[Rfam]
RNA sequence: GGCCUGUGAUGUUUGAGAAUUUGUCCGUACCAUCUGAGAUUACUCUUUGAUGCAUCAAUCUCCUAUAGCUUCUGAGGCCU
Numbered sequence: 001g002g003c004c005u006g007u008g009a010u011g012u013u014u015g016a017g018a019a020u021u022u023g024u025c026c027g028u029a030c031c032a033u034c035u036g037a038g039a040u041u042a043c044u045c046u047u048u049g050a051u052g053c054a055u056c057a058a059u060c061u062c063c064u065a066u067a068g069c070u071u072c073u074g075a076g077g078c079c080u
Base pairs, nucleotide, nucleotide: 001079002078003077004076
About this RNA
Shown here is an 80-nucleotide sequence from Tripterygium wilfordii, a member of the family "small nucleolar RNA snoR117". NCBI's taxonomy places the organism under Eukaryota, Streptophyta, Magnoliopsida, rosids, Tripterygium. It is annotated as a C/D-box small nucleolar RNA.